[Rfam]
RNA sequence: AGAACAACACGCCAAACCACGAGCAAUCGUGGGACGGAAAGCCGCGAGUCCCUCCGGGAUAGUCGGGCCGCCUCG
Numbered sequence: 001a002g003a004a005c006a007a008c009a010c011g012c013c014a015a016a017c018c019a020c021g022a023g024c025a026a027u028c029g030u031g032g033g034a035c036g037g038a039a040a041g042c043c044g045c046g047a048g049u050c051c052c053u054c055c056g057g058g059a060u061a062g063u064c065g066g067g068c069c070g071c072c073u074c075g
Stems, first nucleotide, its partner, number of pairs: 012037002017032006041068003045065003048060005
Dot-bracket structure: ...........((...((((((....))))))...))...(((.((((((((...)))))..)))))).......